The record is a 182-nucleotide RNA from Oryza glumipatula, which matches "MIR812 microRNA precursor family" in Rfam. The organism belongs to Oryza, within Eukaryota. A search with the family's covariance model found it, with a score of 120 bits.

RNA sequence: AAUAAGUGCAGCCGUGGAUAUCCGUGCCCAACGUUUGACCAUCCGUCUUAUUUAAAAAAUUUGUGAAAAUAUUUAGUCACACAUAAAGUACUAUUCAUGUUUUAUCAUCUAAUAGUAAUAAAAAUACUAAUCAUAAAAAAAUUUCAAAUAAGAUGAACGGUUAAACGUUGAACGUGAAUAGU
Numbered sequence: 001a002a003u004a005a006g007u008g009c010a011g012c013c014g015u016g017g018a019u020a021u022c023c024g025u026g027c028c029c030a031a032c033g034u035u036u037g038a039c040c041a042u043c044c045g046u047c048u049u050a051u052u053u054a055a056a057a058a059a060u061u062u063g064u065g066a067a068a069a070u071a072u073u074u075a076g077u078c079a080c081a082c083a084u085a086a087a088g089u090a091c092u093a094u095u096c097a098u099g100u101u102u103u104a105u106c107a108u109c110u111a112a113u114a115g116u117a118a119u120a121a122a123a124a125u126a127c128u129a130a131u132c133a134u135a136a137a138a139a140a141a142u143u144u145c146a147a148a149u150a151a152g153a154u155g156a157a158c159g160g161u162u163a164a165a166c167g168u169u170g171a172a173c174g175u176g177a178a179u180a181g182u
Stems, first nucleotide, its partner, number of pairs: 029170004034165007042157001044155008